[Rfam]
RNA sequence: GUCGGCUCCCCGCGUGGCGCCAUCCAGGCCAACUCCCCCAGGGCGGAAACGCAGCAAGGGUAACCAGGCUCUGGCGGGUGCGCGGGGGGUCCUUUUU
Numbered sequence: 001g002u003c004g005g006c007u008c009c010c011c012g013c014g015u016g017g018c019g020c021c022a023u024c025c026a027g028g029c030c031a032a033c034u035c036c037c038c039c040a041g042g043g044c045g046g047a048a049a050c051g052c053a054g055c056a057a058g059g060g061u062a063a064c065c066a067g068g069c070u071c072u073g074g075c076g077g078g079u080g081c082g083c084g085g086g087g088g089g090u091c092c093u094u095u096u097u
Base pairs, nucleotide, nucleotide: 004091005090006089007088008087009086010085011084012083013082014081015078018076019075020074021073022072024068025067027065028064035060036059037058043052044051045050
Bacterial small signal recognition particle RNA: a 97-nucleotide sequence from Pseudoclavibacter endophyticus.
NCBI's taxonomy places the organism under Bacteria, Bacillati, Actinomycetota, Microbacteriaceae, Pseudoclavibacter.
Pairs were carried over by alignment from the consensus structure, which is taken from published work.